[Rfam]
RNA sequence: GUCGGGGUACUGCCCGGUGAAGAUCGUCGGCCGCGACGGCACGCA
Dot-bracket structure: ...........(.(((((.......))))).).............
Shown here is a 45-nucleotide sequence from Nocardioides sp. Root1257, a member of the family "Mycobacterium sRNA Ms_AS-5". A reference for the family is Li et al. (2013), "Identification of small RNAs in Mycobacterium smegmatis using heterologous Hfq", RNA. Pairs were carried over by alignment from the consensus structure. The organism belongs to Nocardioides, within Bacteria.